RNA sequence: UGCUUUGCACAGGGGCAGUAUCAUAGCCAAUGAGGUUUAUCCAAGGUGUGAUGAUUGCUAAUUGGAAACUUUCCCAAUACCCUGCCAUGACAAAUUGAAAUGUAGUCAGCACUGGCAAUUUUUGACAGUCUCUACAGAGA
Numbered sequence: 001u002g003c004u005u006u007g008c009a010c011a012g013g014g015g016c017a018g019u020a021u022c023a024u025a026g027c028c029a030a031u032g033a034g035g036u037u038u039a040u041c042c043a044a045g046g047u048g049u050g051a052u053g054a055u056u057g058c059u060a061a062u063u064g065g066a067a068a069c070u071u072u073c074c075c076a077a078u079a080c081c082c083u084g085c086c087a088u089g090a091c092a093a094a095u096u097g098a099a100a101u102g103u104a105g106u107c108a109g110c111a112c113u114g115g116c117a118a119u120u121u122u123u124g125a126c127a128g129u130c131u132c133u134a135c136a137g138a139g140a
Stems, first nucleotide, its partner, number of pairs: 020052005026047003034042002084116003088111002093106001095104001129140004

About this RNA
The family of this 140-nucleotide RNA sequence from Cebus imitator is "U4 spliceosomal RNA". The source organism's lineage runs through Eukaryota, Deuterostomia, Mammalia, Theria and Cebus. The base pairs follow the family's consensus structure, which is taken from published work. The family is grouped with related families in Rfam's "U4 clan". U4 small nuclear RNA (U4 snRNA) is a component of the major U2-dependent spliceosome.